[Rfam]
The family of this 81-nucleotide RNA sequence from Oceanococcus atlanticus is "Glycine riboswitch aptamer".

RNA sequence: UCGGCUGACUCUGGAGAGCGGUGAUCUGUGAUCACCCACCGAAGGGGCUUAACUCUCAGGUUAUAGGACAGAGGGGCGGCG
Numbered sequence: 001u002c003g004g005c006u007g008a009c010u011c012u013g014g015a016g017a018g019c020g021g022u023g024a025u026c027u028g029u030g031a032u033c034a035c036c037c038a039c040c041g042a043a044g045g046g047g048c049u050u051a052a053c054u055c056u057c058a059g060g061u062u063a064u065a066g067g068a069c070a071g072a073g074g075g076g077c078g079g080c081g
Stems, first nucleotide, its partner, number of pairs: 006076001009073005020036004038061003041057002045055003